Record summary:
The record is a 79-nucleotide sequence, which matches "skipping-rope RNA" in Rfam. Pairs were carried over by alignment from the consensus structure, which is taken from published work. Rfam classes the family as a small RNA. Rfam's curators put it in the seed alignment.

RNA sequence: AGCAUACGAGGUCAGAAAUGGUUCCUGACGCACUCUCCGGAGUACCUGAGAUGCCGGAUACACCGCCCGGCCGUAUGCC
Numbered sequence: 001a002g003c004a005u006a007c008g009a010g011g012u013c014a015g016a017a018a019u020g021g022u023u024c025c026u027g028a029c030g031c032a033c034u035c036u037c038c039g040g041a042g043u044a045c046c047u048g049a050g051a052u053g054c055c056g057g058a059u060a061c062a063c064c065g066c067c068c069g070g071c072c073g074u075a076u077g078c079c
Base pairs, nucleotide, nucleotide: 002078003077004076005075006074007073008072011029012028013027014026015025019065020064021063022062031048032043033042034041035040053071054070055069056068057067